The record is a 77-nucleotide RNA sequence from Alligator mississippiensis, which matches "Mammalian CPEB3 ribozyme" in Rfam. A search with the family's covariance model found it, with a score of 40 bits. Lineage of the source: Eukaryota > Tetrapoda > Archelosauria > Crocodylia > Alligator. Gene Ontology term of the family: RNA nuclease activity.
RNA sequence: GAUGGCAAGUUUGAGGCCAUAUCAGAAGCACUCACAGCGCAACCCCAGCAGAUUCCAAUGAACCUGCAAAUUCUGCU
Dot-bracket structure: ............[.[[....(.(((((((.........))..]].]..(((.(((....))).)))....))))).)